[Rfam]
RNA: SAM riboswitch aptamer (S box leader)
RNA sequence: CUCUUAUCCAGAGAGGUGGAGGGACUGGCCCGAUGAAACCCGGCAACCUGUAUUUAAUAUGAGGUGCUAAUUCCUGCAGUAAUCUGAUAGAUAAGAG
Numbered sequence: 001c002u003c004u005u006a007u008c009c010a011g012a013g014a015g016g017u018g019g020a021g022g023g024a025c026u027g028g029c030c031c032g033a034u035g036a037a038a039c040c041c042g043g044c045a046a047c048c049u050g051u052a053u054u055u056a057a058u059a060u061g062a063g064g065u066g067c068u069a070a071u072u073c074c075u076g077c078a079g080u081a082a083u084c085u086g087a088u089a090g091a092u093a094a095g096a097g
Base pairs, nucleotide, nucleotide: 001097002096003095004094005093006092007091008090013041015040016039017038021031022030023029025076027074028073042068043067044066045065047064048063049061050060051059052058072089077086078085079084